RNA sequence: UACUAGAAAGGAAAUGGUGUCUUCCUUAUCCAACCGCCGUAACCCGGCUAAUGGCGCCUACAAAUGG
Number, nucleotide and partner (000 for none) at each position: 001u000002a000003c000004u000005a000006g000007a000008a000009a000010g025011g024012a023013a022014a000015u000016g058017g057018u056019g055020u054021c053022u013023u012024c011025c010026u000027u000028a000029u000030c000031c000032a000033a000034c000035c000036g048037c047038c046039g045040u000041a000042a000043c000044c000045c039046g038047g037048c036049u000050a000051a000052u000053g021054g020055c019056g018057c017058c016059u000060a000061c000062a000063a000064a000065u000066g000067g000
The record is a 67-nucleotide RNA from Chitinophaga skermanii, which matches "Fluoride riboswitch aptamer (crcB RNA motif)" in Rfam.